[Rfam]
The family of this 68-nucleotide sequence from Cytobacillus depressus is "Bacillaceae-1 RNA". The family's RNA type in Rfam is small RNA. The family has 95 seed sequences and 5,721 matches in Rfam 15.1.
RNA sequence: GCUAGAGGAACAUCGACUAAAAGCCGCCACGUCCUGUGGCGAACAUCGAUGUCAGCACAUCCUGUGCA
Dot-bracket structure: ..........((((((.........(((((.....))))).....))))))...((((.....)))).
Pairs were carried over by alignment from the consensus structure, which is taken from published work.
Lineage of the source: Bacteria > Bacillati > Bacillota > Bacilli > Cytobacillus.
A search with the family's covariance model found it, with a score of 65 bits.